[Rfam]
RNA sequence: GCUUACAGCCAGACUUGCCUGUAGUUACUUACCUAGGCUUUUACCUAGGGCAUUCUUCUGCAGGCAGGCUAGCAUUAGUUUUAGCAGUUAGAUAAAGGUCUCUCUUACGUACCUGCCUACAGGUAGCCUUAUAAAGAAGACGACAUACAACUAGCUAGGACUAAGGUCCGCGCUUUAGCUAGGAUGCUAGCGUAAUAGCUGUAAGCAGCCUAUCUUAAAAUACAG
Numbered sequence: 001g002c003u004u005a006c007a008g009c010c011a012g013a014c015u016u017g018c019c020u021g022u023a024g025u026u027a028c029u030u031a032c033c034u035a036g037g038c039u040u041u042u043a044c045c046u047a048g049g050g051c052a053u054u055c056u057u058c059u060g061c062a063g064g065c066a067g068g069c070u071a072g073c074a075u076u077a078g079u080u081u082u083a084g085c086a087g088u089u090a091g092a093u094a095a096a097g098g099u100c101u102c103u104c105u106u107a108c109g110u111a112c113c114u115g116c117c118u119a120c121a122g123g124u125a126g127c128c129u130u131a132u133a134a135a136g137a138a139g140a141c142g143a144c145a146u147a148c149a150a151c152u153a154g155c156u157a158g159g160a161c162u163a164a165g166g167u168c169c170g171c172g173c174u175u176u177a178g179c180u181a182g183g184a185u186g187c188u189a190g191c192g193u194a195a196u197a198g199c200u201g202u203a204a205g206c207a208g209c210c211u212a213u214c215u216u217a218a219a220a221u222a223c224a225g
Base pairs, nucleotide, nucleotide: 001206002205003204004203005202006201007200008199009198011196016066017065018064019063020062021061022060023059070189071188072187073186074185075184076183210225211224213222

Rfam assigns this 225-nucleotide part of an RNA from Massarina eburnea to the family "Eukaryotic large subunit ribosomal RNA". For this family Rfam cites "The comparative RNA web (CRW) site: an online database of comparative sequence and structure information for ribosomal, intron, and other RNAs" (Cannone et al., BMC Bioinformatics, 2002). NCBI's taxonomy places the organism under Eukaryota, Dikarya, Pleosporomycetidae, Massarineae, Massarina eburnea.